RNA: DABA-DC-AT RNA
Organism: Dasania phycosphaerae
RNA sequence: CCGAUUUCAGUACUUGUUCGUUCCUUGAACGAUUCUGAAAGUGAUGUACCAGGCAGCCAAAAGUUGUGCUGGCACACAUUGUAGGUACUAGCUAACCCCUUAGUUAGUAGACGGGAUACUUUAGCCGUAAAGUCGGCAUACAUAUGGGCCCCAACA
Numbered sequence: 001c002c003g004a005u006u007u008c009a010g011u012a013c014u015u016g017u018u019c020g021u022u023c024c025u026u027g028a029a030c031g032a033u034u035c036u037g038a039a040a041g042u043g044a045u046g047u048a049c050c051a052g053g054c055a056g057c058c059a060a061a062a063g064u065u066g067u068g069c070u071g072g073c074a075c076a077c078a079u080u081g082u083a084g085g086u087a088c089u090a091g092c093u094a095a096c097c098c099c100u101u102a103g104u105u106a107g108u109a110g111a112c113g114g115g116a117u118a119c120u121u122u123a124g125c126c127g128u129a130a131a132g133u134c135g136g137c138a139u140a141c142a143u144a145u146g147g148g149c150c151c152c153a154a155c156a
Stems, first nucleotide, its partner, number of pairs: 006039005045076003049072003053067003086109010124137004